This 134-nucleotide sequence from Juglans regia belongs to the Rfam family "U11 spliceosomal RNA". The source organism's lineage runs through Eukaryota, Embryophyta, Euphyllophyta, Juglandaceae and Juglans. It scores 41 bits against the family's covariance model. Pairs were carried over by alignment from the consensus structure, which is taken from published work.

RNA sequence: AAAAAGGGUUGGUUGGCAAAUUAUGUCAGGCUCGGCCUCAAUUGGUGAUUGCUGUAUGUAUGGCUAUUAGGACAUAUGGUCAGACACAAUUUUUUGAGCUCUGAAGGGGUGGCUUGUUUAGGCCAACCCUUUGU
Numbered sequence: 001a002a003a004a005a006g007g008g009u010u011g012g013u014u015g016g017c018a019a020a021u022u023a024u025g026u027c028a029g030g031c032u033c034g035g036c037c038u039c040a041a042u043u044g045g046u047g048a049u050u051g052c053u054g055u056a057u058g059u060a061u062g063g064c065u066a067u068u069a070g071g072a073c074a075u076a077u078g079g080u081c082a083g084a085c086a087c088a089a090u091u092u093u094u095u096g097a098g099c100u101c102u103g104a105a106g107g108g109g110u111g112g113c114u115u116g117u118u119u120a121g122g123c124c125a126a127c128c129c130u131u132u133g134u
Base pairs, nucleotide, nucleotide: 008085009084010083012081014028015027016026017025018024033054034053035052036051038048039047040046057078058077059076060075061074062073103132104131105130106129107128108127110125111124112123113122114121115120